[Rfam]
RNA: Bacterial large signal recognition particle RNA
Organism: Clostridium sp. BL8
RNA sequence: UCGUACUAGAUGGGGAGUUAGCGGUGCCCUGUAACCUGCAAUCCGCUACAGCAGGGUUGAAUUCCUUGCUUAGGUUUUAACCUGUGUGGUCUGACCCAUAUAAGUGGUGUUGAGAACUGGGUCCCACGCAAUGGAAAUUCACGAACCUCGUCAGGUCCGGAAGGAAGCAGCGAUAAGUGAACACUUCCAUGUGCCGUGGAUAAAUCUGGUUUGAGCUAACUGUAUGGGUAACGCACAUAGGUUAAUUAUCGAAGCAAGGUGUACGA
Number, nucleotide and partner (000 for none) at each position: 001u266002c265003g264004u263005a262006c261007u000008a000009g058010a057011u056012g030013g029014g028015g027016a000017g025018u024019u023020a000021g000022c000023g019024g018025u017026g000027c015028c014029c013030u012031g000032u000033a000034a000035c055036c054037u053038g052039c051040a000041a000042u000043c000044c000045g000046c000047u000048a000049c000050a000051g039052c038053a037054g036055g035056g011057u010058u009059g000060a000061a000062u000063u000064c259065c258066u257067u256068g255069c254070u253071u000072a000073g250074g249075u248076u000077u000078u000079a243080a242081c241082c240083u239084g238085u237086g236087u235088g234089g000090u000091c000092u230093g229094a000095c000096c227097c226098a225099u224100a223101u222102a000103a000104g220105u219106g217107g216108u215109g000110u000111u000112g000113a000114g212115a211116a210117c209118u208119g207120g206121g205122u204123c000124c199125c198126a197127c196128g195129c191130a190131a000132u189133g188134g187135a186136a185137a000138u181139u180140c179141a178142c177143g000144a000145a000146c000147c000148u173149c172150g171151u170152c000153a000154g000155g000156u165157c164158c163159g000160g000161a000162a000163g158164g157165a156166a000167g000168c000169a000170g151171c150172g149173a148174u000175a000176a000177g142178u141179g140180a139181a138182c000183a000184c000185u136186u135187c134188c133189a132190u130191g129192u000193g000194c000195c128196g127197u126198g125199g124200a000201u000202a000203a000204a122205u121206c120207u119208g118209g117210u116211u115212u114213g000214a000215g108216c107217u106218a000219a105220c104221u000222g101223u100224a099225u098226g097227g096228g000229u093230a092231a000232c000233g000234c088235a087236c086237a085238u084239a083240g082241g081242u080243u079244a000245a000246u000247u000248a075249u074250c073251g000252a000253a070254g069255c068256a067257a066258g065259g064260u000261g006262u005263a004264c003265g002266a001